[Rfam]
RNA sequence: UCUCUACCUCCCGCAACGAUAAACCGUGAACCUGGUCAGGCCCGGAAGGGAGCAGCCACAGCGGUGGAUUCGUGUGCCGGGAUGUGGCUGGUG
Numbered sequence: 001u002c003u004c005u006a007c008c009u010c011c012c013g014c015a016a017c018g019a020u021a022a023a024c025c026g027u028g029a030a031c032c033u034g035g036u037c038a039g040g041c042c043c044g045g046a047a048g049g050g051a052g053c054a055g056c057c058a059c060a061g062c063g064g065u066g067g068a069u070u071c072g073u074g075u076g077c078c079g080g081g082a083u084g085u086g087g088c089u090g091g092u093g
Stems, first nucleotide, its partner, number of pairs: 004087004009082005014074001016073004023065005033058004041050003
The record is a 93-nucleotide RNA from Pontibacterium sinense, which matches "Bacterial small signal recognition particle RNA" in Rfam.
The match comes from Rfam's covariance-model search (69 bits).
Pairs were carried over by alignment from the consensus structure, which is taken from published work.
Lineage of the source: Bacteria > Pseudomonadota > Gammaproteobacteria > Oceanospirillales > Pontibacterium.
About the family: The signal recognition particle (SRP) is a universally conserved ribonucleoprotein involved in the co-translational targeting of proteins to membranes.